RNA: Bacterial small subunit ribosomal RNA, nucleotides 1 to 541
Organism: Ornithinimicrobium ciconiae
RNA sequence: UUAACGGAGAGUUUGAUCCUGGCUCAGGACGAACGCUGGCGGCGUGCUUAACACAUGCAAGUCGAACGAUGAAGCCCAGCUUGCUGGGUGGAUUAGUGGCGAACGGGUGAGUAACACGUGAGUAACCUGCCCUUCACUCUGGGAUAACUCCGGGAAACCGGUGCUAAUACUGGAUAUGACCUCCUUCCGCAUGGUUGGGGGUGGAAAGUUUUUCGGUGGGGGAUGGACUCGCGGCCUAUCAGCUUGUUGGUGGGGUAAUGGCCUACCAAGGCGACGACGGGUAGCCGGCCUGAGAGGGCGACCGGCCACACUGGGACUGAGACACGGCCCAGACUCCUACGGGAGGCAGCAGUGGGGAAUAUUGCACAAUGGGCGAAAGCCUGAUGCAGCGACGCCGCGUGAGGGAUGACGGCCUUCGGGUUGUAAACCUCUUUCAGUAGGGACGAAGCUUUUGUGACGGUACCUACAGAAGAAGCACCGGCUAACUACGUGCCAGCAGCCGCGGUAAUACGUAGGGUGCGAGCGUUGUCCGGAAUUAUUG
Numbered sequence: 001u002u003a004a005c006g007g008a009g010a011g012u013u014u015g016a017u018c019c020u021g022g023c024u025c026a027g028g029a030c031g032a033a034c035g036c037u038g039g040c041g042g043c044g045u046g047c048u049u050a051a052c053a054c055a056u057g058c059a060a061g062u063c064g065a066a067c068g069a070u071g072a073a074g075c076c077c078a079g080c081u082u083g084c085u086g087g088g089u090g091g092a093u094u095a096g097u098g099g100c101g102a103a104c105g106g107g108u109g110a111g112u113a114a115c116a117c118g119u120g121a122g123u124a125a126c127c128u129g130c131c132c133u134u135c136a137c138u139c140u141g142g143g144a145u146a147a148c149u150c151c152g153g154g155a156a157a158c159c160g161g162u163g164c165u166a167a168u169a170c171u172g173g174a175u176a177u178g179a180c181c182u183c184c185u186u187c188c189g190c191a192u193g194g195u196u197g198g199g200g201g202u203g204g205a206a207a208g209u210u211u212u213u214c215g216g217u218g219g220g221g222g223a224u225g226g227a228c229u230c231g232c233g234g235c236c237u238a239u240c241a242g243c244u245u246g247u248u249g250g251u252g253g254g255g256u257a258a259u260g261g262c263c264u265a266c267c268a269a270g271g272c273g274a275c276g277a278c279g280g281g282u283a284g285c286c287g288g289c290c291u292g293a294g295a296g297g298g299c300g301a302c303c304g305g306c307c308a309c310a311c312u313g314g315g316a317c318u319g320a321g322a323c324a325c326g327g328c329c330c331a332g333a334c335u336c337c338u339a340c341g342g343g344a345g346g347c348a349g350c351a352g353u354g355g356g357g358a359a360u361a362u363u364g365c366a367c368a369a370u371g372g373g374c375g376a377a378a379g380c381c382u383g384a385u386g387c388a389g390c391g392a393c394g395c396c397g398c399g400u401g402a403g404g405g406a407u408g409a410c411g412g413c414c415u416u417c418g419g420g421u422u423g424u425a426a427a428c429c430u431c432u433u434u435c436a437g438u439a440g441g442g443a444c445g446a447a448g449c450u451u452u453u454g455u456g457a458c459g460g461u462a463c464c465u466a467c468a469g470a471a472g473a474a475g476c477a478c479c480g481g482c483u484a485a486c487u488a489c490g491u492g493c494c495a496g497c498a499g500c501c502g503c504g505g506u507a508a509u510a511c512g513u514a515g516g517g518u519g520c521g522a523g524c525g526u527u528g529u530c531c532g533g534a535a536u537u538a539u540u541g
Stems, first nucleotide, its partner, number of pairs: 009025005027531004032527006039398006045391002047356001052354003056351003061100003066097002069093002074089006107309003117233007126226002131222007139173004148163001150161004179202006187194002204214003235281003242272003247269008284306004288299004311332005334345004362388001364387003370383005401431004411422004435472001437467005445458001475520005486515005496503002